[Rfam]
RNA sequence: AGGGUCUGUUGAAGGCCCUCCUCUUAGUGUAUUUGACAGGCUGUGCUGGACACUCGAUAUGAGAGGGUGUCAGUUUGUCAAAUACCCCAAGAGAGGGGUCACUGUUC
Numbered sequence: 001a002g003g004g005u006c007u008g009u010u011g012a013a014g015g016c017c018c019u020c021c022u023c024u025u026a027g028u029g030u031a032u033u034u035g036a037c038a039g040g041c042u043g044u045g046c047u048g049g050a051c052a053c054u055c056g057a058u059a060u061g062a063g064a065g066g067g068u069g070u071c072a073g074u075u076u077g078u079c080a081a082a083u084a085c086c087c088c089a090a091g092a093g094a095g096g097g098g099u100c101a102c103u104g105u106u107c
Stems, first nucleotide, its partner, number of pairs: 021093004027087001029085014049071004054066002

A member of the RNA family "mir-223 microRNA precursor family" from Denticeps clupeoides, 107 nucleotides long. The literature on the family includes a 2003 paper in Science by Lim et al., "Vertebrate microRNA genes".